[Rfam]
RNA sequence: UGUGCGGACCGUGACUGGCGCUGAGGUGGAGCACCACCGUGGAGCGGUCCGCACACUCGAUGCCGUGCGCCUGGGCGAUUCCU
Numbered sequence: 001u002g003u004g005c006g007g008a009c010c011g012u013g014a015c016u017g018g019c020g021c022u023g024a025g026g027u028g029g030a031g032c033a034c035c036a037c038c039g040u041g042g043a044g045c046g047g048u049c050c051g052c053a054c055a056c057u058c059g060a061u062g063c064c065g066u067g068c069g070c071c072u073g074g075g076c077g078a079u080u081c082c083u
Stems, first nucleotide, its partner, number of pairs: 003053010015041001017071005026037004061077004
Source information
A member of the RNA family "ZMP/ZTP riboswitch aptamer (pfl RNA motif)", 83 nucleotides long. The match comes from Rfam's covariance-model search (65 bits).